[Rfam]
RNA sequence: GUUCCCGGUGAUGGUAUAAAUUAACCAUGCUAAUACUGAUGUCCUUUGACGAGCAUAAUAAUGUGCUGAGGGAACC
Numbered sequence: 001g002u003u004c005c006c007g008g009u010g011a012u013g014g015u016a017u018a019a020a021u022u023a024a025c026c027a028u029g030c031u032a033a034u035a036c037u038g039a040u041g042u043c044c045u046u047u048g049a050c051g052a053g054c055a056u057a058a059u060a061a062u063g064u065g066c067u068g069a070g071g072g073a074a075c076c
Base pairs, nucleotide, nucleotide: 001075002074003073004072005071
This 76-nucleotide RNA from Panicum miliaceum belongs to the Rfam family "Small nucleolar RNA snoR53Y".
Its family is annotated with nucleolus and RNA processing in the Gene Ontology.
By type it is a C/D-box small nucleolar RNA.
The literature on the family includes a 2001 paper in RNA by Brown et al., "Multiple snoRNA gene clusters from Arabidopsis".